[Rfam]
RNA sequence: AGUGUCUCCAAAGGGGUGACCUGAGAACACAAAGAGCAAUAUGUUGAAUUAAUCCCAACAAAACAAAAAUCGAUUGGGCAAAUUUCAAAUGCAAUCUUGUGUUCUCAGGUUCACUCCUUUGGGGUUACC
Number, nucleotide and partner (000 for none) at each position: 001a000002g000003u000004g000005u000006c000007u123008c122009c000010a000011a119012a118013g117014g116015g000016g114017u113018g112019a111020c000021c000022u000023g106024a105025g104026a103027a102028c101029a100030c099031a098032a097033a000034g000035a000036g000037c000038a000039a000040u000041a000042u000043g000044u000045u000046g000047a000048a000049u000050u000051a000052a000053u000054c000055c000056c000057a000058a000059c000060a000061a000062a000063a000064c000065a000066a000067a000068a000069a000070u000071c000072g000073a000074u000075u000076g000077g000078g000079c000080a000081a000082a000083u000084u000085u000086c000087a000088a000089a000090u000091g000092c000093a000094a000095u000096c000097u032098u031099g030100u029101g028102u027103u026104c025105u024106c023107a000108g000109g000110u000111u019112c018113a017114c016115u000116c014117c013118u012119u011120u000121g000122g008123g007124g000125u000126u000127a000128c000129c000
RNA: MIR398 microRNA precursor family
Organism: Cucumis sativus